[Rfam]
RNA sequence: AAACUCGAUAGAGGAGCGGGCGCGAAGACGCGCGGGCGAGCCGGCAGGCAACGACCCCGCACCGAGGCAACCCCGCCGAACUUGGUCGACCGGGCGCGGAAGGCCAGGUGGGCUUGCGGGGAACACCCGCAAGACUGUCUGCACAGACAUUCUGCAGGAGUGCUAUCAGAAAA
Number, nucleotide and partner (000 for none) at each position: 001a000002a000003a000004c000005u000006c000007g167008a166009u165010a164011g163012a000013g000014g000015a000016g076017c075018g074019g073020g072021c000022g000023c000024g068025a000026a000027g000028a000029c000030g062031c000032g060033c059034g058035g057036g056037c000038g000039a000040g000041c000042c000043g000044g000045c000046a000047g000048g000049c000050a000051a000052c000053g000054a000055c000056c036057c035058c034059g033060c032061a000062c030063c000064g000065a000066g000067g000068c024069a000070a000071c000072c020073c019074c018075g017076c016077c000078g000079a000080a109081c108082u107083u106084g105085g104086u103087c102088g000089a000090c099091c098092g000093g000094g000095c000096g000097c000098g091099g090100a000101a000102g087103g086104c085105c084106a083107g082108g081109u080110g136111g135112g000113c133114u132115u131116g130117c129118g128119g127120g126121g000122a000123a000124c000125a000126c120127c119128c118129g117130c116131a115132a114133g113134a000135c111136u110137g000138u158139c157140u156141g155142c154143a153144c000145a000146g000147a000148c000149a000150u000151u000152c000153u143154g142155c141156a140157g139158g138159a000160g000161u000162g000163c011164u010165a009166u008167c007168a000169g000170a000171a000172a000173a000
RNA: Lysine riboswitch aptamer
Organism: Collinsella sp. CAG:289